[Rfam]
RNA sequence: AGAUGAGGUAGAGGUCGCGGUUAUGAAGAGUAUACCGGAGGAGGCGCAUGGAAGCCGCCAAUGAACCCGGUAGAAAGGCAUCGCCGCCGAAGUGCGAAUCCUAUGCUUCCCUUUCAAGGAUUCGUGCUGGGACUGUAUCCGAAAGGAGCAGGACUGUCACGGUCAUUCAUCAUGGAAUGAUCGUGUUGAGCUAUCUUCAUG
Numbered sequence: 001a002g003a004u005g006a007g008g009u010a011g012a013g014g015u016c017g018c019g020g021u022u023a024u025g026a027a028g029a030g031u032a033u034a035c036c037g038g039a040g041g042a043g044g045c046g047c048a049u050g051g052a053a054g055c056c057g058c059c060a061a062u063g064a065a066c067c068c069g070g071u072a073g074a075a076a077g078g079c080a081u082c083g084c085c086g087c088c089g090a091a092g093u094g095c096g097a098a099u100c101c102u103a104u105g106c107u108u109c110c111c112u113u114u115c116a117a118g119g120a121u122u123c124g125u126g127c128u129g130g131g132a133c134u135g136u137a138u139c140c141g142a143a144a145g146g147a148g149c150a151g152g153a154c155u156g157u158c159a160c161g162g163u164c165a166u167u168c169a170u171c172a173u174g175g176a177a178u179g180a181u182c183g184u185g186u187u188g189a190g191c192u193a194u195c196u197u198c199a200u201g
Stems, first nucleotide, its partner, number of pairs: 006196006017087005023081003033072006091128012129155002133151004138146002158185010
Dot-bracket structure: .....((((((.....(((((.(((.......((((((............................))))))......))).)))))...((((((((((((..............))))))))))))((..((((.((.....)).))))..))..((((((((((........)))))))))).....)))))).....

Lysine riboswitch aptamer: a 201-nucleotide RNA sequence from Paenibacillus sp. CAA11.